[Rfam]
RNA: pan motif
Organism: Paenisporosarcina cavernae
RNA sequence: AGGACGGUAUCCAGUUGGAACUGUACCUAAGUAAAAAAAAACAAUAAAAAUAAAUAGCAAUUCUGCCUUGAUCAUUUUUGACAGGGACGGAGGA
Numbered sequence: 001a002g003g004a005c006g007g008u009a010u011c012c013a014g015u016u017g018g019a020a021c022u023g024u025a026c027c028u029a030a031g032u033a034a035a036a037a038a039a040a041a042c043a044a045u046a047a048a049a050a051u052a053a054a055u056a057g058c059a060a061u062u063c064u065g066c067c068u069u070g071a072u073c074a075u076u077u078u079u080g081a082c083a084g085g086g087a088c089g090g091a092g093g094a
Base pairs, nucleotide, nucleotide: 001028002027003026004024005023006022007021008020010019011018063090064089065088066086067085068084069083070082072081073080074079